[Rfam]
Rfam assigns this 142-nucleotide sequence from Nelumbo nucifera to the family "small nucleolar RNA snoR134".
A reference for the family is Chen and Wu (2009), "Mining small RNA sequencing data: a new approach to identify small nucleolar RNAs in Arabidopsis", Nucleic Acids Res.
RNA sequence: CUGCACGGUGCACCGCAGGCUUCUCUGAAAUCUUAGCUGAUGAUGAAAGCCCCAUUGCAUGUGCUAAAGUGAGCCAUUUAGUGUUGCAGUUUAGCUCUGAUCUCUUGACCGGCUAAUCUGUGUCAAAGCAAUGGCCACAUCU
Numbered sequence: 001c002u003g004c005a006c007g008g009u010g011c012a013c014c015g016c017a018g019g020c021u022u023c024u025c026u027g028a029a030a031u032c033u034u035a036g037c038u039g040a041u042g043a044u045g046a047a048a049g050c051c052c053c054a055u056u057g058c059a060u061g062u063g064c065u066a067a068a069g070u071g072a073g074c075c076a077u078u079u080a081g082u083g084u085u086g087c088a089g090u091u092u093a094g095c096u097c098u099g100a101u102c103u104c105u106u107g108a109c110c111g112g113c114u115a116a117u118c119u120g121u122g123u124c125a126a127a128g129c130a131a132u133g134g135c136c137a138c139a140u141c142u
Stems, first nucleotide, its partner, number of pairs: 003064005010058002018051004022046002024043002073135006082125002085122005094113003
Source information: Rfam links the family to the GO terms nucleolus and RNA processing. Lineage of the source: Eukaryota > Streptophytina > Mesangiospermae > Nelumbonaceae > Nelumbo.